Eukaryotic large subunit ribosomal RNA: a 406-nucleotide part of an RNA from Chiloscyllium punctatum. A search with the family's covariance model found it, with a score of 1664 bits. NCBI's taxonomy places the organism under Eukaryota, Craniata, Selachii, Galeomorphii, Chiloscyllium.

[Rfam]
RNA sequence: UGUGUUGUUGCAAUAGUAAUCCUGCUCAGUCGAGACAAACCACAGAUUAAGACAUUUGGUGUAUGUGCUUAGCUGAGGAGCCAAUGGUGCGAAGCUACCAUCUGUGGGAUUAUGACCAAACGCCUCUAAAUCAGAAUCCCACCUAAAUGUAACGAUACCCUAGCGCCGUGGAUCACUGGCUGGCCUAGGAUAACCGACUCCAGUCGGUGCAUAGAGCCAUUCGAUUCUGGUCUGGAGUGCGGCCGCAUGGGCACUGCCUCUCUCCUUUAAUCACACCUCAUGUUCGUGGGGAACCUGGUGCUAAAUCAUUCGUAGACGACCAGAUUCUGGCUCAGGAUUUCGUAAGUAGCAGAGCAGCUACCUCGCUGCAAUCUAUUGAAAGUCAUCCCUCGAGCCAACCUUUUGU
Numbered sequence: 001u002g003u004g005u006u007g008u009u010g011c012a013a014u015a016g017u018a019a020u021c022c023u024g025c026u027c028a029g030u031c032g033a034g035a036c037a038a039a040c041c042a043c044a045g046a047u048u049a050a051g052a053c054a055u056u057u058g059g060u061g062u063a064u065g066u067g068c069u070u071a072g073c074u075g076a077g078g079a080g081c082c083a084a085u086g087g088u089g090c091g092a093a094g095c096u097a098c099c100a101u102c103u104g105u106g107g108g109a110u111u112a113u114g115a116c117c118a119a120a121c122g123c124c125u126c127u128a129a130a131u132c133a134g135a136a137u138c139c140c141a142c143c144u145a146a147a148u149g150u151a152a153c154g155a156u157a158c159c160c161u162a163g164c165g166c167c168g169u170g171g172a173u174c175a176c177u178g179g180c181u182g183g184c185c186u187a188g189g190a191u192a193a194c195c196g197a198c199u200c201c202a203g204u205c206g207g208u209g210c211a212u213a214g215a216g217c218c219a220u221u222c223g224a225u226u227c228u229g230g231u232c233u234g235g236a237g238u239g240c241g242g243c244c245g246c247a248u249g250g251g252c253a254c255u256g257c258c259u260c261u262c263u264c265c266u267u268u269a270a271u272c273a274c275a276c277c278u279c280a281u282g283u284u285c286g287u288g289g290g291g292a293a294c295c296u297g298g299u300g301c302u303a304a305a306u307c308a309u310u311c312g313u314a315g316a317c318g319a320c321c322a323g324a325u326u327c328u329g330g331c332u333c334a335g336g337a338u339u340u341c342g343u344a345a346g347u348a349g350c351a352g353a354g355c356a357g358c359u360a361c362c363u364c365g366c367u368g369c370a371a372u373c374u375a376u377u378g379a380a381a382g383u384c385a386u387c388c389c390u391c392g393a394g395c396c397a398a399c400c401u402u403u404u405g406u
Stems, first nucleotide, its partner, number of pairs: 004156008014145003019048001022045003050103003057097003064091005069084002072081003106140003113133003165299004170294001303404003309323002312320001329396005335389002339382002346376004351372001354369005